[Rfam]
RNA: MIR473 microRNA precursor family
Organism: Juglans regia
RNA sequence: GUUGCUCACUCUCUCUCAAGAGCUUCUAGCAUUGCCAGACACGUACGGCAAGCUCGAGGCCUUGGGGGAGAGUGCACAA
Number, nucleotide and partner (000 for none) at each position: 001g000002u000003u000004g000005c000006u000007c074008a073009c072010u071011c070012u069013c068014u067015c066016u000017c065018a000019a063020g062021a000022g060023c059024u058025u057026c056027u000028a000029g000030c000031a000032u000033u000034g000035c000036c000037a000038g000039a000040c000041a000042c000043g000044u000045a000046c000047g000048g000049c000050a000051a000052g000053c000054u000055c000056g026057a025058g024059g023060c022061c000062u020063u019064g000065g017066g015067g014068g013069a012070g011071a010072g009073u008074g007075c000076a000077c000078a000079a000